[Rfam]
RNA: Purine riboswitch aptamer
RNA sequence: AAUUAAUCAUUAAUAUUGUGUCGUAUAAUGUUGGGAAUAUGGCCCAAGAGUUUCUACCGAGCUACCGUAAAUGGCUUGACUACGAGGCAAUUGUGAUAGGGG
Number, nucleotide and partner (000 for none) at each position: 001a000002a000003u000004u000005a000006a000007u000008c000009a000010u000011u000012a000013a000014u000015a000016u000017u000018g088019u087020g000021u085022c084023g083024u082025a081026u000027a000028a000029u049030g000031u047032u046033g045034g044035g043036a000037a000038u000039a000040u000041g000042g000043c035044c034045c033046a032047a031048g000049a029050g000051u000052u000053u000054c000055u000056a000057c000058c078059g077060a076061g075062c074063u073064a072065c000066c000067g000068u000069a000070a000071a000072u064073g063074g062075c061076u060077u059078g058079a000080c000081u025082a024083c023084g022085a021086g000087g019088c018089a000090a000091u000092u000093g000094u000095g000096a000097u000098a000099g000100g000101g000102g000